Nuclear RNase P: a 307-nucleotide RNA sequence from Hymenochirus boettgeri. NCBI's taxonomy places the organism under Eukaryota, Craniata, Sarcopterygii, Batrachia, Hymenochirus. Gene Ontology terms of the family: tRNA processing, ribonuclease P complex and ribonuclease P activity. A reference for the family is Frank and Pace (1998), "Ribonuclease P: unity and diversity in a tRNA processing ribozyme", Annu Rev Biochem.

[Rfam]
RNA sequence: AUUAAAGGAAGCUCAGUGCUGAGGUCACCUACAGAGUGCUGAUGUUACUCUCUAAAGCUUACCUUGGGGAAGGUCUGAGAUUAGAGCCACUUACUGUCCUCACAGGACAUUGCUUGACUAAAGCAAGUGAGUACCCAGCAAAACACAAACCUGUUUCCUAUCCAAUGCAAAAGAUGUGAACGUACAGGGUGUCCACCUACAGAUGCAAAGGAACAGGCUUGGAAGUGACUCAUGGCUGGCCUUCAAGUUCAAUGGCUGUCAGGAGGCAGAUGCUUCCCAACCCAAUUCAGACUACUCUCCCUCUACU
Number, nucleotide and partner (000 for none) at each position: 001a307002u000003u305004a304005a000006a000007g300008g299009a298010a000011g000012c000013u000014c258015a257016g256017u255018g000019c000020u066021g065022a064023g063024g062025u000026c000027a000028c000029c000030u000031a000032c000033a000034g050035a049036g048037u047038g046039c044040u000041g000042a000043u000044g039045u000046u038047a037048c036049u035050c034051u000052c000053u000054a000055a000056a000057g000058c000059u000060u000061a000062c024063c023064u022065u021066g020067g000068g000069g000070a000071a000072g000073g000074u000075c290076u289077g288078a287079g286080a000081u000082u000083a000084g000085a237086g236087c235088c234089a000090c000091u000092u000093a000094c000095u109096g108097u107098c106099c105100u000101c000102a000103c000104a000105g099106g098107a097108c096109a095110u126111u125112g124113c123114u122115u121116g000117a000118c000119u000120a000121a115122a114123g113124c112125a111126a110127g233128u232129g231130a230131g229132u228133a000134c000135c000136c000137a000138g000139c000140a000141a000142a000143a000144c000145a000146c217147a000148a000149a000150c000151c000152u000153g000154u000155u000156u000157c000158c000159u000160a000161u000162c000163c000164a000165a000166u000167g000168c000169a000170a000171a000172a000173g000174a000175u000176g000177u000178g000179a000180a000181c000182g000183u000184a000185c000186a000187g000188g000189g000190u000191g000192u000193c000194c000195a000196c000197c000198u000199a000200c000201a000202g000203a000204u000205g000206c000207a000208a000209a000210g000211g000212a000213a000214c000215a000216g000217g146218c000219u000220u000221g000222g000223a000224a000225g000226u000227g000228a132229c131230u130231c129232a128233u127234g088235g087236c086237u085238g000239g000240c000241c000242u000243u000244c000245a000246a000247g000248u000249u000250c000251a000252a000253u000254g000255g017256c016257u015258g014259u000260c000261a000262g277263g276264a275265g274266g273267c272268a000269g000270a000271u000272g267273c266274u265275u264276c263277c262278c000279a000280a000281c000282c000283c000284a000285a000286u079287u078288c077289a076290g075291a000292c000293u000294a000295c000296u000297c000298u009299c008300c007301c000302u000303c000304u004305a003306c000307u001